A member of the RNA family "Group II catalytic intron D1-D4-3" from Chlamydiales bacterium SCGC AG-110-P3, 170 nucleotides long.
[Rfam]
RNA sequence: UCCAUCGUGAGGUGGAAUCUGAAGGAAGCUGGAAGCAAAGCGCUGCCCUGAUGAACAAGAAGCGGAUUAGGCGGUCGUGAAGGAUAAGUAGGCCUAUGACUACAAAGUCCAAUUCCCUUACAGAAUCCACGUACGUAGAUCCGAUAGGGAUAAGCGGGAGAGUUUAUUGC
Numbered sequence: 001u002c003c004a005u006c007g008u009g010a011g012g013u014g015g016a017a018u019c020u021g022a023a024g025g026a027a028g029c030u031g032g033a034a035g036c037a038a039a040g041c042g043c044u045g046c047c048c049u050g051a052u053g054a055a056c057a058a059g060a061a062g063c064g065g066a067u068u069a070g071g072c073g074g075u076c077g078u079g080a081a082g083g084a085u086a087a088g089u090a091g092g093c094c095u096a097u098g099a100c101u102a103c104a105a106a107g108u109c110c111a112a113u114u115c116c117c118u119u120a121c122a123g124a125a126u127c128c129a130c131g132u133a134c135g136u137a138g139a140u141c142c143g144a145u146a147g148g149g150a151u152a153a154g155c156g157g158g159a160g161a162g163u164u165u166a167u168u169g170c
Base pairs, nucleotide, nucleotide: 001016002015003014004013005012006011028170029169031167035163036162041156042155043154044153046149047148048147049146050145063143064142065141066140071136072135073134076131077130078129079128081126082110083109084108085107088103089102090101091100